[Rfam]
RNA sequence: AGAGCCAGCCAGACAGUCGCUGCGCAAGUCUUUGCGUGGAGGAAAGUCCGGGCUUCACAGGGCAGGGUGCCAGGUAACGCCUGGGGGGCCGUCUUCAGGACGGUUCACGGCCAGUGCCACAGAGAACAUACCGCCGAUGGCUUCGUUUCGACGAAGAUCAGGCAAGGGUGAAAAGGUGCGGUAAGAGCGCACCGCGCGUCUGGUAACAGACGUGGCAGGGUAAACCCCACCUGAAGCAAGGCCAAAUAGGGAUGCGAUGGCGUGGCCCGCGCUGCAUCCGGGUAGGCUGCUAGAGGCGACUGGUGACAGUCGUCCCAGAUGAAUGACUGUCCAACGACAGAACCCGGCUUAUCGGCUGGCUCUCACC
Dot-bracket structure: ((((((((((((((((((.((((((((....))))))))....[[[.[[[[[((((...[[[[.((((((((((.....)))))((((((((((...))))))))).)((...(((((............(((((..(((.((...........)).))))))..)).......((((((.......))))))(((((((((....)))))))).)..)))..)))))))))))))...((((......((((((...(((((.]]]]))))))))))).....))))......((((((((....))))))))..........)))))))...........]]]]]]]].).))))))))))....

Description: The record is a 367-nucleotide RNA from Wenzhouxiangella marina, which matches "Bacterial RNase P class A" in Rfam. By type it is a ribozyme. It scores 327 bits against the family's covariance model. Ribonuclease P (RNase P) is a ubiquitous endoribonuclease, found in archaea, bacteria and eukarya as well as chloroplasts and mitochondria.